[Rfam]
RNA sequence: AAUGAAUGAUGACAAAAUGUUUCGGUCCCAAAUGACAUGGAAUGAUUCUGUUUUCCCAUUUUCUGACAUU
Numbered sequence: 001a002a003u004g005a006a007u008g009a010u011g012a013c014a015a016a017a018u019g020u021u022u023c024g025g026u027c028c029c030a031a032a033u034g035a036c037a038u039g040g041a042a043u044g045a046u047u048c049u050g051u052u053u054u055c056c057c058a059u060u061u062u063c064u065g066a067c068a069u070u
Stems, first nucleotide, its partner, number of pairs: 001070004
RNA: Small nucleolar RNA SNORD73
Organism: Manacus vitellinus